[Rfam]
RNA sequence: AACUUCUGCAUUAACAGAACUCUGCUAUAAUUGUGUGAUUCAGAGCAAUCUGUUUCACACAAUAAUGCUAGCAGAGUAUUAUGCGGAAGGAGAUCAUUGAAGCACUGUACUGAAAAUGAGAUGAGGUGGAACCUCUUUCUAAAUGUUCAUUGGCCUUUUUCUCAAGGUCCAGUGCUACACUU
Numbered sequence: 001a002a003c004u005u006c007u008g009c010a011u012u013a014a015c016a017g018a019a020c021u022c023u024g025c026u027a028u029a030a031u032u033g034u035g036u037g038a039u040u041c042a043g044a045g046c047a048a049u050c051u052g053u054u055u056c057a058c059a060c061a062a063u064a065a066u067g068c069u070a071g072c073a074g075a076g077u078a079u080u081a082u083g084c085g086g087a088a089g090g091a092g093a094u095c096a097u098u099g100a101a102g103c104a105c106u107g108u109a110c111u112g113a114a115a116a117u118g119a120g121a122u123g124a125g126g127u128g129g130a131a132c133c134u135c136u137u138u139c140u141a142a143a144u145g146u147u148c149a150u151u152g153g154c155c156u157u158u159u160u161c162u163c164a165a166g167g168u169c170c171a172g173u174g175c176u177a178c179a180c181u182u
Stems, first nucleotide, its partner, number of pairs: 020076002023073005030066004036057002041052004101176007109168001122153001125151001127149004